[Rfam]
Nucleotides: 172
Stems, first nucleotide, its partner, number of pairs: 130169006138163003142159001
Number, partner (000 for none) and nucleotide at each position: 001000g002000a003000u004000g005000a006000u007000u008000c009000c010000a011000g012000a013000u014000a015000g016000c017000g018000g019000c020000a021000a022000u023000a024000u025000c026000u027000a028000a029000a030000u031000u032000g033000u034000a035000a036000a037000u038000a039000a040000c041000u042000u043000g044000u045000c046000u047000u048000g049000u050000a051000g052000a053000u054000c055000c056000u057000a058000u059000u060000g061000c062000u063000g064000g065000g066000u067000c068000g069000u070000a071000a072000a073000u074000u075000c076000c077000a078000u079000g080000a081000a082000u083000a084000c085000g086000g087000g088000c089000c090000c091000a092000u093000u094000c095000a096000a097000c098000g099000a100000a101000c102000a103000u104000u105000a106000u107000u108000g109000c110000u111000c112000c113000a114000a115000g116000c117000c118000c119000c120000a121000g122000a123000a124000a125000a126000a127000u128000u129000a130169g131168a132167u133166g134165a135164u136000g137000a138163c139162c140161a141000a142159g143000a144000a145000u146000a147000a148000a149000a150000g151000u152000u153000a154000a155000u156000u157000u158000a159142u160000c161140u162139g163138g164135a165134u166133c167132a168131u169130c170000c171000c172000a
A member of the RNA family "Antisense RNA which regulates isiA expression" from Prochlorococcus marinus, 172 nucleotides long. It scores 54 bits against the family's covariance model.